[Rfam]
RNA sequence: GGUUAGCGUAGCGCUAGGAUUAGAUCGGCUGAAGAGGACCCUAGUUGGUCCUAAAACGGCCUGAGGUAGAGGGGUUUUAGUCGGUAGGUCCGAGGACUUCUUCCUCGGGAAUCCGACACUACCCAGUCGUACGGACGGCUGGGUGUCUUCUGAAGAUUUCCCCUCUUCCAC
Numbered sequence: 001g002g003u004u005a006g007c008g009u010a011g012c013g014c015u016a017g018g019a020u021u022a023g024a025u026c027g028g029c030u031g032a033a034g035a036g037g038a039c040c041c042u043a044g045u046u047g048g049u050c051c052u053a054a055a056a057c058g059g060c061c062u063g064a065g066g067u068a069g070a071g072g073g074g075u076u077u078u079a080g081u082c083g084g085u086a087g088g089u090c091c092g093a094g095g096a097c098u099u100c101u102u103c104c105u106c107g108g109g110a111a112u113c114c115g116a117c118a119c120u121a122c123c124c125a126g127u128c129g130u131a132c133g134g135a136c137g138g139c140u141g142g143g144u145g146u147c148u149u150c151u152g153a154a155g156a157u158u159u160c161c162c163c164u165c166u167u168c169c170a171c
Stems, first nucleotide, its partner, number of pairs: 036051005059171001065169002068166002071162003080117005089109008119145001121144005